A member of the RNA family "BsrG" from Effusibacillus lacus, 249 nucleotides long. The literature on the family includes a 2008 paper in Gene by Saito et al., "Novel small RNA-encoding genes in the intergenic regions of Bacillus subtilis". It scores 150 bits against the family's covariance model. From the family's description: bsrE, bsrG and bsrH pair through intermolecular interactions with antisense sRNAs. They form type I toxin/antitoxin system that includes an mRNA encoding for a short, toxic peptide (bsrE, bsrG and bsrH) and an antitoxin that is comprised of an antisense RNA. bsrG encodes a 39-amino-acid toxin, and the 180 nucleotide antisense sRNA called SR4 acts as the antitoxin (they overlap by 123 nucleotides). SR4 interaction with the 3'UTR of bsrG RNA promotes bsrG degradation and inhibits its translation. BsrG interferes with cell envelope biosynthesis, causes membrane invaginations and delocalisation of the cell wall synthesis and initiates autolysis. bsrE RNA encodes 30 amino-acid toxin peptide. Taxonomically the source falls in Effusibacillus (Bacteria, Bacillota, Bacilli, Caryophanales).
[Rfam]
RNA sequence: UACAAUAGAAUCGGCUCCUCAAGGGUGGAUCGGCUCAUCCCCGGACGAAAGGGGGUGAGGCCAUGACAGUAUACGAGACAGUCUCCCUUAUGAUUGCGUUUGGGAUGUUGGUUAUCGCCAUAUUGUCGUUUCCAAAAAAGAAAUAGACCACCCUUGAGUUGACCACUCGGCGGUCUAUUCCGCAUAACUUGAGCCGGCCCCUUGAGGGGCAGCUAUUGUACCUUGACCGUAGGUGCGGCAACACCUACG
Numbered sequence: 001u002a003c004a005a006u007a008g009a010a011u012c013g014g015c016u017c018c019u020c021a022a023g024g025g026u027g028g029a030u031c032g033g034c035u036c037a038u039c040c041c042c043g044g045a046c047g048a049a050a051g052g053g054g055g056u057g058a059g060g061c062c063a064u065g066a067c068a069g070u071a072u073a074c075g076a077g078a079c080a081g082u083c084u085c086c087c088u089u090a091u092g093a094u095u096g097c098g099u100u101u102g103g104g105a106u107g108u109u110g111g112u113u114a115u116c117g118c119c120a121u122a123u124u125g126u127c128g129u130u131u132c133c134a135a136a137a138a139a140g141a142a143a144u145a146g147a148c149c150a151c152c153c154u155u156g157a158g159u160u161g162a163c164c165a166c167u168c169g170g171c172g173g174u175c176u177a178u179u180c181c182g183c184a185u186a187a188c189u190u191g192a193g194c195c196g197g198c199c200c201c202u203u204g205a206g207g208g209g210c211a212g213c214u215a216u217u218g219u220a221c222c223u224u225g226a227c228c229g230u231a232g233g234u235g236c237g238g239c240a241a242c243a244c245c246u247a248c249g
Stems, first nucleotide, its partner, number of pairs: 001220005007214002011211001012196006018158008028148001030146001035058003039054004065127007079092002102119002168182003197210004228249008